[Rfam]
RNA sequence: CAACGUUCUCAGGGCGGGGUGGAAGUCCCCACCGGCGGUAAGCGCGGUUCGCCGCGCGGAGCCCGCGAGCGCCUGCCGGCCUGCCGGCGGGGUCAGCAGACUUCGGUGCGAUUCCGAGGCCGACGGUCAUAGUCCGGAUGAAAGAGAACGGGA
Numbered sequence: 001c002a003a004c005g006u007u008c009u010c011a012g013g014g015c016g017g018g019g020u021g022g023a024a025g026u027c028c029c030c031a032c033c034g035g036c037g038g039u040a041a042g043c044g045c046g047g048u049u050c051g052c053c054g055c056g057c058g059g060a061g062c063c064c065g066c067g068a069g070c071g072c073c074u075g076c077c078g079g080c081c082u083g084c085c086g087g088c089g090g091g092g093u094c095a096g097c098a099g100a101c102u103u104c105g106g107u108g109c110g111a112u113u114c115c116g117a118g119g120c121c122g123a124c125g126g127u128c129a130u131a132g133u134c135c136g137g138a139u140g141a142a143a144g145a146g147a148a149c150g151g152g153a
Stems, first nucleotide, its partner, number of pairs: 004150007017029003031133002033122002035066004061120002069097002102118005124136003
Description:
The record is a 153-nucleotide RNA from bacterium YEK0313, which matches "FMN riboswitch aptamer (RFN element)" in Rfam.